[Rfam]
Nucleotides: 363
Stems, first nucleotide, its partner, number of pairs: 001359007020332008034319008044306005049063004054073001056071003111137005118131002139178006147167007155193006198225005205218002210241005244280004248275003255268003259298004263292001265290001336352005
Number, partner (000 for none) and nucleotide at each position: 001359g002358g003357g004356g005355a006354c007353g008000u009000u010000a011000c012000g013000g014000a015000u016000u017000c018000g019000a020332c021331a022330g023329g024328g025327g026326u027325a028000g029000a030000u031000c032000g033000a034319g035318c036317u037316c038315a039314g040313g041312c042000u043000g044306c045305g046304g047303g048302u049063c050062g051061a052060g053000g054073u055000u056071a057070c058069g059000g060052c061051u062050c063049g064000u065000u066000a067000a068000a069058c070057g071056u072000u073054a074000c075000u076000c077000g078000c079000c080000u081000a082000a083000a084000u085000a086000u087000a088000a089000c090000u091000g092000g093000c094000a095000a096000a097000g098000a099000a100000a101000a102000c103000a104000a105000u106000u107000a108000c109000u110000c111137u112136u113135u114134a115133g116000c117000a118131g119130c120000u121000g122000c123000g124000u125000a126000a127000g128000u129000a130119g131118c132000a133115c134114u135113a136112a137111a138000g139178g140177a141176u142175c143174c144173u145000u146000c147167c148166u149165a150164c151163c152162a153161u154000c155193g156192c157191c158190c159189g160188u161153g162152u163151g164150g165149u166148a167147g168000a169000u170000a171000g172000a173144a174143g175142g176141g177140u178139c179000u180000c181000a182000a183000a184000u185000g186000a187000a188160g189159c190158g191157g192156g193155c194000u195000a196000c197000g198225c199224u200223g201222u202221c203000g204000u205218u206217c207000u208000c209000c210241g211240c212239c213238u214237g215000g216000g217206g218205a219000c220000a221202g222201a223200c224199a225198g226000a227000a228000g229000a230000g231000a232000c233000g234000a235000a236000u237214c238213a239212g240211g241210c242000u243000a244280g245279c246278u247277c248275c249274u250273g251000g252000g253000a254000a255268g256267c257266c258000u259298g260297u261296u262295g263292g264000c265290a266257g267256g268255c269000c270000a271000a272000a273250c274249a275248g276000u277247g278246a279245g280244u281000g282000a283000a284000u285000g286000a287000c288000a289000a290265u291000a292263u293000a294000c295262c296261a297260a298259c299000u300000a301000c302048g303047c304046u305045c306044g307000u308000a309000g310000a311000u312041g313040c314039c315038u316037g317036a318035g319034u320000g321000g322000c323000g324000a325027u326026a327025u328024c329023u330022c331021u332020g333000g334000a335000c336352g337351u338350g339349g340348g341000u342000u343000c344000a345000a346000u347000u348340c349339c350338c351337a352336c353007c354006g355005u356004c357003u358002c359001c360000a361000c362000c363000a